[Rfam]
Nucleotides: 073
Base pairs, nucleotide, nucleotide: 003067005065006064007063008062009061010060011059013057014056016054017053018052019051022048024047025046026045027043028042029041030040031038
Number, partner (000 for none) and nucleotide at each position: 001000u002000u003067a004000a005065u006064g007063g008062c009061a010060u011059a012000u013057g014056a015000c016054u017053g018052a019051a020000u021000u022048g023000a024047g025046g026045g027043a028042g029041g030040a031038c032000u033000u034000a035000u036000a037000u038031g039000u040030u041029u042028u043027u044000a045026c046025c047024c048022c049000u050000u051019u052018u053017c054016a055000u056014u057013u058000u059011u060010a061009u062008g063007c064006u065005g066000c067003u068000u069000u070000g071000g072000a073000g